[Rfam]
RNA sequence: UUUGCACUUUGCUGUAUGUUGCUCUGGAUAAGAGCAUCUGCUAAAUACCUGUAA
Numbered sequence: 001u002u003u004g005c006a007c008u009u010u011g012c013u014g015u016a017u018g019u020u021g022c023u024c025u026g027g028a029u030a031a032g033a034g035c036a037u038c039u040g041c042u043a044a045a046u047a048c049c050u051g052u053a054a
Stems, first nucleotide, its partner, number of pairs: 013043001014041003020036006